RNA sequence: GUGAGAAUCACAGUGCAGCUCUCCUCUGGCAUGGAGGCUGUGAACAGUAGAUAUUUGAUGUAAAUUCCAGCCUUUCCAUGCCAAAGGAGAGCUGCCCUGCCAUUCAGUA
Dot-bracket structure: ....((((..(((.(((((.((((..(((((((((.......................................)))))))))..)))).))))).)))..))))....
Notes:
mir-399 microRNA precursor family: a 109-nucleotide sequence from Panicum miliaceum. It scores 81 bits against the family's covariance model. Lineage of the source: Eukaryota > Tracheophyta > Paniceae > Panicinae > Panicum sect. Panicum. The family's consensus secondary structure was predicted with PFOLD. Rfam describes the family as follows. mir-399 was identified in both Arabidopsis thaliana and Oryza sativa computationally and was later experimentally verified. mir-399 is thought to target mRNAs coding for a phosphatase transporter.